[Rfam]
This 48-nucleotide RNA from Marisediminitalea lipolytica belongs to the Rfam family "Xanthine riboswitch aptamer (NMT1 RNA)". Gene Ontology term of the family: purine nucleobase binding. Pairs were carried over by alignment from the consensus structure, which is taken from published work. A search with the family's covariance model found it, with a score of 43 bits. NCBI's taxonomy places the organism under Bacteria, Pseudomonadati, Alteromonadales, Alteromonadaceae, Marisediminitalea. The literature on the family includes a 2021 paper in Nucleic Acids Res by Xu et al., "Insights into xanthine riboswitch structure and metal ion-mediated ligand recognition".
RNA sequence: UAGCGGAGUAGAAGCUGGCAGGCGUUACGCUGGGUCAUUGCUCCUUAA
Number, nucleotide and partner (000 for none) at each position: 001u000002a000003g000004c000005g044006g043007a042008g041009u040010a039011g000012a000013a000014g000015c033016u000017g000018g035019c034020a000021g031022g030023c029024g028025u000026u000027a000028c024029g023030c022031u021032g000033g015034g019035u018036c000037a000038u000039u010040g009041c008042u007043c006044c005045u000046u000047a000048a000